[Rfam]
RNA sequence: AAAAAGGGCUUCUGCCGUGUGUGGCACGGGGGGGCUCCCAGCCGCCCCCGCGGAAUCGACAUCAAGAGAUUUCGGAAGCACAAUUUUUGAGCGACGGGAUUGCUGGUAACCGCCAGUUCCAGCACCCGG
Numbered sequence: 001a002a003a004a005a006g007g008g009c010u011u012c013u014g015c016c017g018u019g020u021g022u023g024g025c026a027c028g029g030g031g032g033g034g035c036u037c038c039c040a041g042c043c044g045c046c047c048c049c050g051c052g053g054a055a056u057c058g059a060c061a062u063c064a065a066g067a068g069a070u071u072u073c074g075g076a077a078g079c080a081c082a083a084u085u086u087u088u089g090a091g092c093g094a095c096g097g098g099a100u101u102g103c104u105g106g107u108a109a110c111c112g113c114c115a116g117u118u119c120c121a122g123c124a125c126c127c128g129g
Stems, first nucleotide, its partner, number of pairs: 008079005013026005027050006034042002051074007097127002100124001102123005108118003
RNA: U11 spliceosomal RNA